[Rfam]
RNA sequence: AUAGUCCACAGGGGGAGCUGCGCAUAAGCGGCUGAGAGUGAACGUUCGAGUUCUGACCCUAUGAACCUGUUAGUUAACGCUAGCGUAGGGAUGUGGUUUUGCCGAUAU
Numbered sequence: 001a002u003a004g005u006c007c008a009c010a011g012g013g014g015g016a017g018c019u020g021c022g023c024a025u026a027a028g029c030g031g032c033u034g035a036g037a038g039u040g041a042a043c044g045u046u047c048g049a050g051u052u053c054u055g056a057c058c059c060u061a062u063g064a065a066c067c068u069g070u071u072a073g074u075u076a077a078c079g080c081u082a083g084c085g086u087a088g089g090g091a092u093g094u095g096g097u098u099u100u101g102c103c104g105a106u107a108u
Base pairs, nucleotide, nucleotide: 006096007095008094009093010092011060012059013058014057016054017032018031019030020029021028040053041052042051043050066089067088068087069086070083071082072081073080
RNA: TPP riboswitch aptamer (THI element)